RNA sequence: UGUGAGAGUGAUGAGUUGCACCAUCAGUCGGGCGCUGGUUGCAGUGGCACAGGCAUCCCGUCCCGCACCUCUCUGGGGACACAACCAUGUGCACAGGGGCCAUCUGACUCACC
Numbered sequence: 001u002g003u004g005a006g007a008g009u010g011a012u013g014a015g016u017u018g019c020a021c022c023a024u025c026a027g028u029c030g031g032g033c034g035c036u037g038g039u040u041g042c043a044g045u046g047g048c049a050c051a052g053g054c055a056u057c058c059c060g061u062c063c064c065g066c067a068c069c070u071c072u073c074u075g076g077g078g079a080c081a082c083a084a085c086c087a088u089g090u091g092c093a094c095a096g097g098g099g100c101c102a103u104c105u106g107a108c109u110c111a112c113c
Stems, first nucleotide, its partner, number of pairs: 004112001006110003025065001027063001029060003032054002038050001040049003
Dot-bracket structure: ...(.(((................(.(.(((((....(.(((....))))..))...)))..).)..........................................))).).
RNA: Small nucleolar RNA SNORD67